Small nucleolar RNA snoR8a: an 81-nucleotide RNA from Ceratodon purpureus. Rfam 15.1 lists 956 matches to the family in 245 species. Pairs were carried over by alignment from the consensus structure, which was predicted with WAR. A search with the family's covariance model found it, with a score of 63 bits. Rfam classes the family as a C/D-box small nucleolar RNA.
RNA sequence: CAUGUGCUAUGAUUUCAACAAUUCCUCGUACUGAAUGCUAAGGCAUGACAGACUACUUUACACCCAUUGUAUAUGAGCACA
Dot-bracket structure: ..((((.......................................................................))))